[Rfam]
Rfam assigns this 46-nucleotide sequence from Persicirhabdus sediminis to the family "Acido-Lenti-1 RNA".

RNA sequence: CCCGGGGCUGAAGCCCCGGGCUUUGUUCUUUGGCGCUUUCAGCGCA
Number, nucleotide and partner (000 for none) at each position: 001c020002c019003c018004g017005g016006g015007g014008c013009u000010g000011a000012a000013g008014c007015c006016c005017c004018g003019g002020g001021c000022u000023u000024u000025g000026u000027u000028c000029u000030u000031u000032g000033g045034c044035g043036c042037u041038u000039u000040c000041a037042g036043c035044g034045c033046a000
Taxonomically the source falls in Persicirhabdus (Bacteria, Pseudomonadati, Verrucomicrobiales, Verrucomicrobiaceae).
The base pairs follow the family's consensus structure, which is taken from published work.
Rfam classes the family as a small RNA.
A search with the family's covariance model found it, with a score of 41 bits.